Rfam assigns this 70-nucleotide sequence from Prevotella nigrescens to the family "Bacteroidetes FopS (family of paralogous sRNAs)". Rfam classes the family as a small RNA. A search with the family's covariance model found it, with a score of 62 bits. The family has 12 seed sequences and 822 matches in Rfam 15.1.

[Rfam]
RNA sequence: GUGUUUUUCAUGGUAUUAGAUUAUUAAGGUUUUGAAGAUUGGUUGUCGUGAGACAGUCAAUCUUUUUUUA
Numbered sequence: 001g002u003g004u005u006u007u008u009c010a011u012g013g014u015a016u017u018a019g020a021u022u023a024u025u026a027a028g029g030u031u032u033u034g035a036a037g038a039u040u041g042g043u044u045g046u047c048g049u050g051a052g053a054c055a056g057u058c059a060a061u062c063u064u065u066u067u068u069u070a
Stems, first nucleotide, its partner, number of pairs: 041058007